[Rfam]
RNA sequence: GGUGUUCUGCUCUUCUCGACAGGAAAUACAGACAUUCCCGGGGCCUUAUUGAUUCCUAAGGGAGCUGUCCCUGAGAAAGCCCGUGGGCUUUUUCAUAUGGCGCCCACCUACUUGUGUAGGUUCCCGGAAUCAGACUUUUCCAUCGGUCGCUGCGGUUCACCA
Numbered sequence: 001g002g003u004g005u006u007c008u009g010c011u012c013u014u015c016u017c018g019a020c021a022g023g024a025a026a027u028a029c030a031g032a033c034a035u036u037c038c039c040g041g042g043g044c045c046u047u048a049u050u051g052a053u054u055c056c057u058a059a060g061g062g063a064g065c066u067g068u069c070c071c072u073g074a075g076a077a078a079g080c081c082c083g084u085g086g087g088c089u090u091u092u093u094c095a096u097a098u099g100g101c102g103c104c105c106a107c108c109u110a111c112u113u114g115u116g117u118a119g120g121u122u123c124c125c126g127g128a129a130u131c132a133g134a135c136u137u138u139u140c141c142a143u144c145g146g147u148c149g150c151u152g153c154g155g156u157u158c159a160c161c162a
Stems, first nucleotide, its partner, number of pairs: 002160003007155004012149001015146001017145003035129004040124006060105003064101005073094009
RNA: 6S / SsrS RNA
Organism: Bartonella bacilliformis